Record summary
Rfam assigns this 146-nucleotide sequence from Aegilops tauschii to the family "small nucleolar RNA snoR137". Gene Ontology terms of the family: nucleolus and RNA processing. NCBI's taxonomy places the organism under Eukaryota, Liliopsida, Petrosaviidae, Poaceae, Aegilops tauschii. Rfam classes the family as an H/ACA-box small nucleolar RNA. The family's consensus secondary structure was predicted with RNAalifold. The literature on the family includes a 2009 paper in Nucleic Acids Res by Chen and Wu, "Mining small RNA sequencing data: a new approach to identify small nucleolar RNAs in Arabidopsis".
RNA sequence: GUUGCUUCACAACUGGAAGGAUGGCUUGUUCAUUACAGUUUGGUCAUCCCGUAGAGGGAAGCAUAGACGGACGGAAACACCGGCCAGCAUUAAACAGCAUGACGCUCAAUCAAACCGCGUCGUGUUACCUGUCUUCUGGCACAUCU
Numbered sequence: 001g002u003u004g005c006u007u008c009a010c011a012a013c014u015g016g017a018a019g020g021a022u023g024g025c026u027u028g029u030u031c032a033u034u035a036c037a038g039u040u041u042g043g044u045c046a047u048c049c050c051g052u053a054g055a056g057g058g059a060a061g062c063a064u065a066g067a068c069g070g071a072c073g074g075a076a077a078c079a080c081c082g083g084c085c086a087g088c089a090u091u092a093a094a095c096a097g098c099a100u101g102a103c104g105c106u107c108a109a110u111c112a113a114a115c116c117g118c119g120u121c122g123u124g125u126u127a128c129c130u131g132u133c134u135u136c137u138g139g140c141a142c143a144u145c146u
Stems, first nucleotide, its partner, number of pairs: 003063006017052001019050002022046005083140005089134001096126003100122005